[Rfam]
A member of the RNA family "Plastid-ccsA-ndhD-1 3UTR RNA" from Rosa praelucens, 66 nucleotides long.
RNA sequence: UAAACCAGCAAGAACCAUUUGAAUCAUUCCAUUUCCAUUACUUGAUUCAAAUGGUUCUCGAAAAUG
Numbered sequence: 001u002a003a004a005c006c007a008g009c010a011a012g013a014a015c016c017a018u019u020u021g022a023a024u025c026a027u028u029c030c031a032u033u034u035c036c037a038u039u040a041c042u043u044g045a046u047u048c049a050a051a052u053g054g055u056u057c058u059c060g061a062a063a064a065u066g
Base pairs, nucleotide, nucleotide: 009060011058012057013056014055015054016053017052018051019050020049021048022047023046024045025044026043
On this family, see Richter et al., Plant Commun 2023: "Retrograde signaling in plants: A critical review focusing on the GUN pathway and beyond". Taxonomically the source falls in Rosa (Eukaryota, Euphyllophyta, Spermatophyta, Magnoliopsida). The family's consensus secondary structure was predicted with LocARNA. The sequence is in the family's curated seed alignment. Clan: Plastid-ccsA_ndhD 3UTR RNA clan. Plastid-ccsA-ndhD-1 is a non-coding RNA (ncRNA) recognised in plastids.